[Rfam]
Rfam assigns this 82-nucleotide RNA from Crocosphaera subtropica to the family "Glutamine riboswitch aptamer (glnA leader)". Gene Ontology term of the family: glutamine binding. Rfam's curators put it in the seed alignment.
RNA sequence: GUCGUUCAUCUCUACAUUGUUAGGAAAAAACGCAGUGAAGGGACGGAAGUAGGCUUGCAAUCUAGAGCCGAAGGAACGCUCA
Numbered sequence: 001g002u003c004g005u006u007c008a009u010c011u012c013u014a015c016a017u018u019g020u021u022a023g024g025a026a027a028a029a030a031c032g033c034a035g036u037g038a039a040g041g042g043a044c045g046g047a048a049g050u051a052g053g054c055u056u057g058c059a060a061u062c063u064a065g066a067g068c069c070g071a072a073g074g075a076a077c078g079c080u081c082a
Stems, first nucleotide, its partner, number of pairs: 003078005009043005046079001052069005